[Rfam]
RNA sequence: GUUUGUCAGCGAGUUUCGCUUUUGUGCUUUGCAAUGCGAAACAUCGCGUAUUGACUUGUAUUUUGUAAGACUUUGUUUUUAUACCUCUGUCUGACAAAAUACGGAAAAAAUUUUUUCGGAAUUUAAUAAUUCCUCAAAAAUUUUUUUAUAGGA
Dot-bracket structure: ..........(((((((((................))))))).))............((((((((.............................))))))))..((((((.((((..((((((....))))))...)))).))))))......
RNA: TD-1 RNA